[Rfam]
epsC RNA: a 125-nucleotide sequence from Geobacillus sp. WCH70.
RNA sequence: CGGUGAUGUCUCCUUACCGUUAUCAAUGGAGGCACUCGGCCAUGCCGUGGGUGGGGACGAUGACGGUCCUGCCACCUUAGACGCUAGUCGUCGAGGGUGUGGUGUGAGGGCGGGUUAGAUGCCCG
Numbered sequence: 001c002g003g004u005g006a007u008g009u010c011u012c013c014u015u016a017c018c019g020u021u022a023u024c025a026a027u028g029g030a031g032g033c034a035c036u037c038g039g040c041c042a043u044g045c046c047g048u049g050g051g052u053g054g055g056g057a058c059g060a061u062g063a064c065g066g067u068c069c070u071g072c073c074a075c076c077u078u079a080g081a082c083g084c085u086a087g088u089c090g091u092c093g094a095g096g097g098u099g100u101g102g103u104g105u106g107a108g109g110g111c112g113g114g115u116u117a118g119a120u121g122c123c124c125g
Base pairs, nucleotide, nucleotide: 001019002018003017004016007034008033009032010031011030012029013028035108036107037106038105039103040102041101042100043099044098045097046096049077050076051075053073054072055069056068057067058066080092081091082090083089111125112124113123114122115121
Rfam's curators put it in the seed alignment.